[Rfam]
RNA sequence: CCCGCCACUAUACCUGUCCUGAAUCCCGUGGCUGGUAUAUUCCAGUGGUGAGCUGAGAGCAAGCCCCAGCCCAGGAAGCAGCUCUCUCCUGCGUGUGGGCAGGGCUGUGCCGAAAGGCUGGGGACACAU
Numbered sequence: 001c002c003c004g005c006c007a008c009u010a011u012a013c014c015u016g017u018c019c020u021g022a023a024u025c026c027c028g029u030g031g032c033u034g035g036u037a038u039a040u041u042c043c044a045g046u047g048g049u050g051a052g053c054u055g056a057g058a059g060c061a062a063g064c065c066c067c068a069g070c071c072c073a074g075g076a077a078g079c080a081g082c083u084c085u086c087u088c089c090u091g092c093g094u095g096u097g098g099g100c101a102g103g104g105c106u107g108u109g110c111c112g113a114a115a116g117g118c119u120g121g122g123g124a125c126a127c128a129u
Stems, first nucleotide, its partner, number of pairs: 005048005018035002021032001023029001064122003068119001070116001074111002079107006087099003
Rfam assigns this 129-nucleotide RNA sequence from Nyctiprogne leucopyga to the family "Small nucleolar RNA SNORA65". The family's consensus secondary structure was predicted with RNAalifold. NCBI's taxonomy places the organism under Eukaryota, Opisthokonta, Vertebrata, Sauria, Nyctiprogne. From the family's description: U65 belongs to the H/ACA class of snoRNAs which are thought to guide the sites of modification of uridines to pseudouridines. On this family, see Huttenhofer et al., EMBO J 2001: "RNomics: an experimental approach that identifies 201 candidates for novel, small, non-messenger RNAs in mouse". Clan: SNORA65 clan. Gene Ontology terms of the family: RNA processing and nucleolus.